RNA sequence: GGCGAGCGCCCUGAAAAAACUUGUAGUGUUACUCGCUAAUUAUUCUUUUGAGUUAGUUCUGAGUGUCUAACCAGGUUGAGAGGGAUUAGAAUGUCUUAAUGCCUAUCUGUUGAAUUGUUAUCCACAAAUCGAUAGAGGGCUGGGGAUUCUUACAUUU
Dot-bracket structure: .................((((((.......(((((...(..............).....))))).......))))))..........(((((...........(.(((((((..(...........)..))))))).).......)))).)......
Numbered sequence: 001g002g003c004g005a006g007c008g009c010c011c012u013g014a015a016a017a018a019a020c021u022u023g024u025a026g027u028g029u030u031a032c033u034c035g036c037u038a039a040u041u042a043u044u045c046u047u048u049u050g051a052g053u054u055a056g057u058u059c060u061g062a063g064u065g066u067c068u069a070a071c072c073a074g075g076u077u078g079a080g081a082g083g084g085a086u087u088a089g090a091a092u093g094u095c096u097u098a099a100u101g102c103c104u105a106u107c108u109g110u111u112g113a114a115u116u117g118u119u120a121u122c123c124a125c126a127a128a129u130c131g132a133u134a135g136a137g138g139g140c141u142g143g144g145g146a147u148u149c150u151u152a153c154a155u156u157u
Stems, first nucleotide, its partner, number of pairs: 018077006031064005039054001088151001089149004104138001106136007115127001